The record is a 308-nucleotide RNA from Pantoea alhagi, which matches "Soft rot Enterobacteriaceae Rev 39 5'UTR" in Rfam. A search with the family's covariance model found it, with a score of 154 bits. The literature on the family includes a 2016 paper in BMC Genomics by Kwenda et al., "Discovery and profiling of small RNAs responsive to stress conditions in the plant pathogen Pectobacterium atrosepticum". Rfam links the family to the GO term cellular response to starvation. The organism belongs to Pantoea, within Bacteria.
Nucleotides: 308
Stems, first nucleotide, its partner, number of pairs: 005033005011027001013024001015022002037068005044060005084262003089255002092251002096242003101235001103233003108118003120140004126135003142159001144157004161191001163189001168185002171182002193228012206215003263295004271284003
Number, partner (000 for none) and nucleotide at each position: 001000a002000a003000a004000g005033g006032u007031u008030g009029u010000a011027g012000a013024g014000g015022c016021a017000u018000g019000c020000c021016u022015g023000u024013c025000u026000g027011u028000g029009a030008u031007a032006a033005c034000u035000c036000u037068u038067u039066a040065g041064g042000c043000a044060u045059u046058a047057c048056u049000u050000c051000g052000a053000a054000u055000a056048a057047g058046u059045g060044a061000a062000a063000u064041u065040u066039u067038g068037a069000a070000c071000a072000g073000c074000a075000u076000a077000u078000g079000a080000a081000a082000g083000c084262c085261c086260u087000u088000c089255u090254a091000c092251g093250a094000g095000u096242g097241a098240u099000u100000a101235g102000c103233c104232u105231a106000g107000u108118c109117g110116u111000g112000a113000u114000u115000a116110g117109c118108g119000u120140g121139g122138u123137g124000g125000u126135g127134a128133u129000u130000a131000u132000u133128a134127u135126c136000a137123c138122a139121c140120c141000g142159u143000g144157c145156g146155g147154g148000g149000c150000u151000g152000c153000g154147c155146u156145c157144g158000g159142a160000g161191g162000a163189a164000g165000a166000a167000a168185g169184g170000c171182u172181u173000a174000a175000a176000a177000a178000u179000c180000a181172a182171g183000c184169c185168u186000g187000a188000a189163u190000c191161u192000a193228a194227a195226a196225g197224a198223a199222c200221c201220c202219c203218c204217g205000c206215a207214c208213c209000g210000a211000a212000a213208g214207g215206u216000c217204c218203g219202g220201g221200g222199g223198u224197u225196u226195u227194u228193u229000u230000a231105u232104g233103g234000u235101c236000a237000g238000g239000u240098a241097u242096c243000g244000g245000g246000a247000u248000a249000g250093u251092u252000a253000a254090u255089g256000a257000a258000a259000g260086a261085g262084g263295a264294a265293c266292a267000a268000a269000c270000a271284a272283u273282g274000u275000a276000c277000a278000g279000u280000a281000g282273c283272a284271u285000a286000a287000a288000a289000u290000a291000c292266u293265g294264u295263u296000g297000u298000u299000c300000c301000c302000g303000g304000g305000a306000c307000c308000a